[Rfam]
RNA sequence: AUUAGUGAAACGCAAACCGGAUGAAAGUUCGGGACGCAAAGUCUGGAAUCUACAGCGACUUGUUCGCCACGAUCGUCCGACCGCCUCG
Number, nucleotide and partner (000 for none) at each position: 001a000002u000003u000004a000005g000006u000007g000008a000009a000010a000011c000012g037013c036014a000015a000016a000017c032018c031019g030020g029021a028022u027023g000024a000025a000026a000027g022028u021029u020030c019031g018032g017033g000034a000035c000036g013037c012038a000039a000040a000041g081042u080043c079044u000045g078046g077047a076048a073049u072050c071051u000052a000053c000054a000055g067056c066057g065058a064059c000060u000061u000062g000063u000064u058065c057066g056067c055068c000069a000070c000071g050072a049073u048074c000075g000076u047077c046078c045079g043080a042081c041082c000083g000084c000085c000086u000087c000088g000
RNA: c-di-GMP-I riboswitch aptamer